RNA sequence: GUACUCUGAAAGCUUAUAGUUUUAUAAGUUUUUAUAAGUUUAUAGCACUGAUCAAAGUAACUGAAGAUGAAGUCUGAGACUAGGGCCAUAAGGUGGCCCUAACAGAAUCCUCCCUGAGUUUUGGAGAGGUGAAUUUCCAGAAAAUGGGGCUUCACAGAAAGGCAGACUGGGCAGAUAUCAUGGACACCACCCUUGCAGAGUGGCCUGGUGGAUGCCUCCUUAGCCAGAGCUUGGAACAGGCUCAUGGCCAGUGAGUGAAGUGAAUUUAAAGGCUGAGGCGAAGUACCCUGCGCGGGAGCCUCACAACUCAAUUCAGACUACUCUCCCUUGUCC
Numbered sequence: 001g002u003a004c005u006c007u008g009a010a011a012g013c014u015u016a017u018a019g020u021u022u023u024a025u026a027a028g029u030u031u032u033u034a035u036a037a038g039u040u041u042a043u044a045g046c047a048c049u050g051a052u053c054a055a056a057g058u059a060a061c062u063g064a065a066g067a068u069g070a071a072g073u074c075u076g077a078g079a080c081u082a083g084g085g086c087c088a089u090a091a092g093g094u095g096g097c098c099c100u101a102a103c104a105g106a107a108u109c110c111u112c113c114c115u116g117a118g119u120u121u122u123g124g125a126g127a128g129g130u131g132a133a134u135u136u137c138c139a140g141a142a143a144a145u146g147g148g149g150c151u152u153c154a155c156a157g158a159a160a161g162g163c164a165g166a167c168u169g170g171g172c173a174g175a176u177a178u179c180a181u182g183g184a185c186a187c188c189a190c191c192c193u194u195g196c197a198g199a200g201u202g203g204c205c206u207g208g209u210g211g212a213u214g215c216c217u218c219c220u221u222a223g224c225c226a227g228a229g230c231u232u233g234g235a236a237c238a239g240g241c242u243c244a245u246g247g248c249c250a251g252u253g254a255g256u257g258a259a260g261u262g263a264a265u266u267u268a269a270a271g272g273c274u275g276a277g278g279c280g281a282a283g284u285a286c287c288c289u290g291c292g293c294g295g296g297a298g299c300c301u302c303a304c305a306a307c308u309c310a311a312u313u314c315a316g317a318c319u320a321c322u323c324u325c326c327c328u329u330g331u332c333c
Stems, first nucleotide, its partner, number of pairs: 001333001003331002008326001010324001013272003017268003021065004026041006074316005084249004095109002099105001110128003114124002129245004134240002149230003274303006
The family of this 333-nucleotide RNA sequence from Canis lupus is "Nuclear RNase P".
It is one of the family's seed sequences.
Ribonuclease P (RNase P) is a ubiquitous endoribonuclease, found in archaea, bacteria and eukarya as well as chloroplasts and mitochondria. Its best characterised activity is the generation of mature 5'-ends of tRNAs by cleaving the 5'-leader elements of precursor-tRNAs. Cellular RNase Ps are ribonucleoproteins. RNA from bacterial RNase Ps retains its catalytic activity in the absence of the protein subunit, i.e. it is a ribozyme.
Gene Ontology terms of the family: tRNA processing, ribonuclease P complex and ribonuclease P activity.
Rfam classes the family as a ribozyme.
The family is grouped with related families in Rfam's "RNaseP clan".
A reference for the family is Frank and Pace (1998), "Ribonuclease P: unity and diversity in a tRNA processing ribozyme", Annu Rev Biochem.
Taxonomically the source falls in Canis lupus (Eukaryota, Eumetazoa, Sarcopterygii, Caniformia).